[Rfam]
RNA sequence: AGGAAUAGAAGUAGAAAAACAUCGGGAACUACACACCUGAAAAGGUAUCUGAAAAGUGGGGAAGUCCCGUCCCACCUAUAUCC
Numbered sequence: 001a002g003g004a005a006u007a008g009a010a011g012u013a014g015a016a017a018a019a020c021a022u023c024g025g026g027a028a029c030u031a032c033a034c035a036c037c038u039g040a041a042a043a044g045g046u047a048u049c050u051g052a053a054a055a056g057u058g059g060g061g062a063a064g065u066c067c068c069g070u071c072c073c074a075c076c077u078a079u080a081u082c083c
Stems, first nucleotide, its partner, number of pairs: 002082002005079004011032004023069005034051001035046004056075005
The family of this 83-nucleotide RNA sequence from Streptococcus sp. DD10 is "skipping-rope RNA". It is annotated as a small RNA. The match comes from Rfam's covariance-model search (46 bits). The source organism's lineage runs through Bacteria, Bacillati, Bacillota, Streptococcaceae and Streptococcus. Pairs were carried over by alignment from the consensus structure, which is taken from published work.